[Rfam]
RNA: terC RNA
Organism: Xanthobacter dioxanivorans
RNA sequence: AAACCGAUCCGGGCCCCUCUGGCGCAGACGACCUGCGUGAUGUCGGAUCACAGCG
Numbered sequence: 001a002a003a004c005c006g007a008u009c010c011g012g013g014c015c016c017c018u019c020u021g022g023c024g025c026a027g028a029c030g031a032c033c034u035g036c037g038u039g040a041u042g043u044c045g046g047a048u049c050a051c052a053g054c055g
Stems, first nucleotide, its partner, number of pairs: 006049007022038006